RNA: mir-172 microRNA precursor family
Organism: Cicer arietinum
RNA sequence: GUAUAUGCGGGUGCAGCAUCAUCAAGAUUCACAAGGCUUAUCAAUUUGAAGUUUCAUUAUAUAAAUUUGAGAAUCUUGAUGAUGCUGCAUCGACAAAUAC
Numbered sequence: 001g002u003a004u005a006u007g008c009g010g011g012u013g014c015a016g017c018a019u020c021a022u023c024a025a026g027a028u029u030c031a032c033a034a035g036g037c038u039u040a041u042c043a044a045u046u047u048g049a050a051g052u053u054u055c056a057u058u059a060u061a062u063a064a065a066u067u068u069g070a071g072a073a074u075c076u077u078g079a080u081g082a083u084g085c086u087g088c089a090u091c092g093a094c095a096a097a098u099a100c
Base pairs, nucleotide, nucleotide: 010091011090012089013088014087015086016085017084018083019082020081021080022079023078024077025076026075027074028073029072030071032069033068